RNA sequence: GAGUAACCGUCACUGGCGAGGUUAAUCACGUGGACGUGAGGAUCCGAAGCGAAAGCGAGUCUGAACAGGGCGCUGAGUCAGUGGGGGUUGACGCGAAACUUGGUGAUCUACCCGUGGCCAGGCUGAAGGGGUGGUAACACACCGUGGAGGGCCGAACCGAUAAGCGUUGAAAAGCUUCCGGAUGAGCUGCGGGUAGGGGUGAAAGGCCAAUCAAACUGAGAAAUAGCUCGUA
Dot-bracket structure: ....((((.((((((((..((.(..(((........)))..).))...((....))..((((.....)))).....)))))))).))))..((.(...((((((...((((((((((((.((((...(.((((......)))).)....))))...(((..((((........)))).)))..).))))))))))).(((.....)))......))))))......).))..

The record is a 232-nucleotide part of an RNA from Spirosoma linguale, which matches "Bacterial large subunit ribosomal RNA" in Rfam.
NCBI's taxonomy places the organism under Bacteria, Pseudomonadati, Bacteroidota, Cytophagaceae, Spirosoma linguale.
Its family is annotated with ribosome and structural constituent of ribosome in the Gene Ontology.
It is one of the family's seed sequences.